Rfam assigns this 117-nucleotide RNA sequence from Brassica oleracea to the family "MIR9408 microRNA precursor family". Taxonomically the source falls in Brassica (Eukaryota, Tracheophyta, Gunneridae, Brassiceae).
RNA sequence: GCUCAGGACAACAUUUUCAAGAUGGAAAAUGUUUUUGACUUAUGUAGCUGUGAUCAAAUUUUCGCAGCCACGGUUAAGUCAAAAGUAUGUUUCAUCUUAGAGAAUGUUGUCCAGAAC
Number, nucleotide and partner (000 for none) at each position: 001g000002c000003u115004c114005a000006g112007g111008a110009c109010a108011a107012c106013a105014u104015u103016u102017u101018c100019a098020a097021g096022a095023u094024g093025g092026a091027a090028a000029a088030u087031g086032u085033u084034u083035u082036u081037g080038a079039c078040u077041u076042a075043u072044g071045u070046a000047g000048c067049u066050g065051u064052g063053a062054u000055c000056a000057a000058a000059u000060u000061u000062u053063c052064g051065c050066a049067g048068c000069c000070a045071c044072g043073g000074u000075u042076a041077a040078g039079u038080c037081a036082a035083a034084a033085g032086u031087a030088u029089g000090u027091u026092u025093c024094a023095u022096c021097u020098u019099a000100g018101a017102g016103a015104a014105u013106g012107u011108u010109g009110u008111c007112c006113a000114g004115a003116a000117c000